[Rfam]
RNA sequence: AGAGUGUUAUGAUGUUGGAGAUUAUUCUCCGAGUCUAGCUCGGUGCUUACCCUCUGGUUGUUGAAUCAGAGGG
Numbered sequence: 001a002g003a004g005u006g007u008u009a010u011g012a013u014g015u016u017g018g019a020g021a022u023u024a025u026u027c028u029c030c031g032a033g034u035c036u037a038g039c040u041c042g043g044u045g046c047u048u049a050c051c052c053u054c055u056g057g058u059u060g061u062u063g064a065a066u067c068a069g070a071g072g073g
Stems, first nucleotide, its partner, number of pairs: 002041004011035003017030004050073009

This 73-nucleotide RNA from Vagococcus penaei belongs to the Rfam family "L17 ribosomal protein downstream element". A search with the family's covariance model found it, with a score of 63 bits. The organism belongs to Vagococcus, within Bacteria. The family's consensus secondary structure is taken from published work. Rfam classes the family as a cis-regulatory element.